[Rfam]
RNA: Small nucleolar RNA SNORD58
RNA sequence: CUGUUAUGAUGACCUCUUAGGACACCUUUGAAUUAAUGAAAAGAAUGUGUUGUUUUCUGAGCAGC
Numbered sequence: 001c002u003g004u005u006a007u008g009a010u011g012a013c014c015u016c017u018u019a020g021g022a023c024a025c026c027u028u029u030g031a032a033u034u035a036a037u038g039a040a041a042a043g044a045a046u047g048u049g050u051u052g053u054u055u056u057c058u059g060a061g062c063a064g065c
Stems, first nucleotide, its partner, number of pairs: 001064004